Shown here is a 203-nucleotide RNA from Hemibagrus wyckioides, a member of the family "Small nucleolar RNA SNORA74". Rfam classes the family as an H/ACA-box small nucleolar RNA. A reference for the family is Ganot et al. (1997), "The family of box ACA small nucleolar RNAs is defined by an evolutionarily conserved secondary structure and ubiquitous sequence elements essential for RNA accumulation", Genes Dev. About the family: U19 belongs to the H/ACA class of snoRNAs. snoRNAs bind a number of proteins (including dyskerin, Gar1p and Nop10p in the case of the H/ACA class) to form snoRNP complexes. This class are thought to guide the sites of modification of uridines to pseudouridines by forming direct base pairing interactions with substrate RNAs. Targets may include ribosomal and spliceosomal RNAs but the exact functions of many snoRNAs, including U19, are not confirmed. The source organism's lineage runs through Eukaryota, Euteleostomi, Osteoglossocephalai, Clupeocephala and Hemibagrus. Clan: SNORA74 clan. Rfam 15.1 lists 1,348 matches to the family in 628 species. The family's consensus secondary structure was predicted with PFOLD.
RNA sequence: UCCAGCGGCAGUCAGCUGUGCAGGCCUUUACCGUGCUUGAUCUAGUGUUACUCUGCUGGAAAAGAAAGGCACUGCUGUUUAGGCUGUGCUCAGGGCUUGCUGUUUUAGCAGUCUUGUAGCAAGGCCAUGGUGGUGUCUUGCCCACUUGAGAGUGGGCUGGUCACUAAUCCCGUGUGGACAGCCCUAGUCUGUGAGCAAACAUU
Number, nucleotide and partner (000 for none) at each position: 001u060002c059003c058004a057005g056006c055007g054008g053009c000010a000011g051012u050013c000014a000015g046016c045017u044018g043019u000020g041021c039022a038023g037024g036025c035026c000027u000028u000029u000030a000031c000032c000033g000034u000035g025036c024037u023038u022039g021040a000041u020042c000043u018044a017045g016046u015047g000048u000049u000050a012051c011052u000053c008054u007055g006056c005057u004058g003059g002060a001061a000062a000063a000064g000065a000066a000067a000068g000069g136070c135071a134072c133073u132074g131075c130076u129077g128078u000079u000080u000081a000082g126083g125084c124085u123086g000087u121088g120089c119090u118091c116092a115093g000094g113095g112096c111097u000098u110099g109100c108101u107102g000103u000104u000105u000106u000107a101108g100109c099110a098111g096112u095113c094114u000115u092116g091117u000118a090119g089120c088121a087122a000123g085124g084125c083126c082127a000128u077129g076130g075131u074132g073133g072134u071135g070136u069137c000138u198139u197140g196141c195142c000143c193144a192145c191146u000147u000148g000149a000150g000151a000152g000153u000154g184155g183156g182157c000158u180159g179160g000161u177162c176163a175164c174165u000166a000167a000168u000169c000170c000171c000172g000173u000174g164175u163176g162177g161178a000179c159180a158181g000182c156183c155184c154185u000186a000187g000188u000189c000190u000191g145192u144193g143194a000195g141196c140197a139198a138199a000200c000201a000202u000203u000